The record is a 267-nucleotide RNA from Anaerococcus lactolyticus, which matches "Bacterial large signal recognition particle RNA" in Rfam. Rfam's curators write: The signal recognition particle (SRP) is a universally conserved ribonucleoprotein involved in the co-translational targeting of proteins to membranes. It scores 176 bits against the family's covariance model.
[Rfam]
RNA sequence: AUGCACUAGACGGGGAACUAGCGGUGCCUUGUAACCUGCAAUCCGCUAUAGCAGGGUUUAAGUCCCAAUGGAGGACUUUUAGCAAAAUAAAAGAUUAUGAUUACUAGUGUUGAUUGAUAGAUCUUACGCAACAUAAGACUGUGAACCAUGUCAGGAGGGGAACCUAGCAGCAUUAAGCAGACCCUUGUGUGUGCCGUAAGGCCACCUAGCAUGAGCUAGAAAUCUUAGACCCUAUAUUUUACUAAUUGUUCGAUAUUGGGUGUGCUU
Numbered sequence: 001a002u003g004c005a006c007u008a009g010a011c012g013g014g015g016a017a018c019u020a021g022c023g024g025u026g027c028c029u030u031g032u033a034a035c036c037u038g039c040a041a042u043c044c045g046c047u048a049u050a051g052c053a054g055g056g057u058u059u060a061a062g063u064c065c066c067a068a069u070g071g072a073g074g075a076c077u078u079u080u081a082g083c084a085a086a087a088u089a090a091a092a093g094a095u096u097a098u099g100a101u102u103a104c105u106a107g108u109g110u111u112g113a114u115u116g117a118u119a120g121a122u123c124u125u126a127c128g129c130a131a132c133a134u135a136a137g138a139c140u141g142u143g144a145a146c147c148a149u150g151u152c153a154g155g156a157g158g159g160g161a162a163c164c165u166a167g168c169a170g171c172a173u174u175a176a177g178c179a180g181a182c183c184c185u186u187g188u189g190u191g192u193g194c195c196g197u198a199a200g201g202c203c204a205c206c207u208a209g210c211a212u213g214a215g216c217u218a219g220a221a222a223u224c225u226u227a228g229a230c231c232c233u234a235u236a237u238u239u240u241a242c243u244a245a246u247u248g249u250u251c252g253a254u255a256u257u258g259g260g261u262g263u264g265c266u267u
Base pairs, nucleotide, nucleotide: 001267003265004264005263006262008059009058010057011056012030013029014028015027017025018024019023035055036054037053038052039051064260065259066258067257068256069255070254073251074250075249076248079245080244081243082242084240085239086238087237088236093230096227097226099224100223101222105219106217107216108215115211116210118208119207120206122204123200124199125198126197127196128195129191130190132189133188134187135186136185137182139180140179141178142177148173149172150171151170156165157164158163